[Rfam]
Nucleotides: 094
Base pairs, nucleotide, nucleotide: 002091007088009086010085011084012083013082015080016079018078019077021075022074024073025072026071027070029068032063033062034061035057036056037055039053040052
Number, partner (000 for none) and nucleotide at each position: 001000u002091g003000u004000a005000u006000u007088c008000g009086a010085u011084u012083g013082u014000a015080u016079u017000c018078g019077a020000c021075u022074g023000u024073a025072u026071u027070c028000a029068c030000g031000g032063c033062g034061u035057g036056a037055a038000a039053c040052a041000u042000g043000g044000g045000a046000u047000u048000a049000c050000a051000c052040u053039g054000c055037u056036u057035u058000u059000a060000a061034a062033c063032g064000a065000a066000a067000a068029g069000g070027g071026a072025a073024u074022c075021a076000g077019u078018u079016a080015a081000c082013a083012u084011a085010a086009u087000a088007g089000a090000c091002u092000c093000c094000u
The family of this 94-nucleotide RNA from Nicotiana sylvestris is "MIR6152 microRNA precursor family".
The family has 2 seed sequences and 5,807 matches in Rfam 15.1.
NCBI's taxonomy places the organism under Eukaryota, Euphyllophyta, Spermatophyta, Nicotianeae, Nicotiana.